[Rfam]
RNA: Small nucleolar RNA R64/Z200 family
Organism: Quercus lobata
RNA sequence: GAGUUGCUGUGAUGAAUCAUGAAACUAUCACAUGUCAGACUUCAGAGAUCUUAAAAGAUCUAUGAGAUUAUAUUUAUGUUUCUGAGCAGAUU
Numbered sequence: 001g002a003g004u005u006g007c008u009g010u011g012a013u014g015a016a017u018c019a020u021g022a023a024a025c026u027a028u029c030a031c032a033u034g035u036c037a038g039a040c041u042u043c044a045g046a047g048a049u050c051u052u053a054a055a056a057g058a059u060c061u062a063u064g065a066g067a068u069u070a071u072a073u074u075u076a077u078g079u080u081u082c083u084g085a086g087c088a089g090a091u092u
Base pairs, nucleotide, nucleotide: 001092002091004089005088006087007086047060048059049058050057